[Rfam]
RNA sequence: AAGGCUAUGUGUAACUGGCGAAAUACGGAUAACCGUAGGGGAGCACAUAGUGUCGUAUGCCGUUCGCCUGGGCAGAGGUA
Numbered sequence: 001a002a003g004g005c006u007a008u009g010u011g012u013a014a015c016u017g018g019c020g021a022a023a024u025a026c027g028g029a030u031a032a033c034c035g036u037a038g039g040g041g042a043g044c045a046c047a048u049a050g051u052g053u054c055g056u057a058u059g060c061c062g063u064u065c066g067c068c069u070g071g072g073c074a075g076a077g078g079u080a
Base pairs, nucleotide, nucleotide: 004051005050006049007048008047009046010045011044012043015040016039017068018067019066020065021064025036026035027034028033058074059073060072061071